RNA sequence: AUAUCAGAGGUUCUAGCUACCCUCUUUAAAAAACUAAUGAAAA
Dot-bracket structure: .....(((((...[[.....))))).........]].......
Annotation:
PreQ1 (pre queuosine) riboswitch aptamer: a 43-nucleotide RNA from Neobacillus massiliamazoniensis. The base pairs follow the family's consensus structure. The family has 43 seed sequences and 873 matches in Rfam 15.1. From the family's description: This family is a bacterial riboswitch that binds to the metabolite preQ1, an intermediate in the biosynthesis of the modified nucleoside queuosine from GTP. One example of this riboswitch is located in the leader of the Bacillus subtilis ykvJKLM (queCDEF) operon which encodes four genes necessary for queuosine production. PreQ1 binding to the riboswitch aptamer is thought to induce premature transcription termination within the leader to down-regulate expression of these genes. A search with the family's covariance model found it, with a score of 40 bits.